The family of this 66-nucleotide RNA from Nannospalax galili is "mir-718 microRNA precursor family". A search with the family's covariance model found it, with a score of 74 bits. Its family is annotated with RISC complex and miRNA-mediated post-transcriptional gene silencing in the Gene Ontology. Pairs were carried over by alignment from the consensus structure, which was predicted with RNAalifold.
[Rfam]
RNA sequence: AAGGCCGCGGCAGGCAAGAUGGCUGCGGGCCCGAGCGCCGCCUCUUCCGCCCCGCCGGGCGUCGCA
Numbered sequence: 001a002a003g004g005c006c007g008c009g010g011c012a013g014g015c016a017a018g019a020u021g022g023c024u025g026c027g028g029g030c031c032c033g034a035g036c037g038c039c040g041c042c043u044c045u046u047c048c049g050c051c052c053c054g055c056c057g058g059g060c061g062u063c064g065c066a
Stems, first nucleotide, its partner, number of pairs: 003063003006059001008057004013051003018047002021044002025041004029036002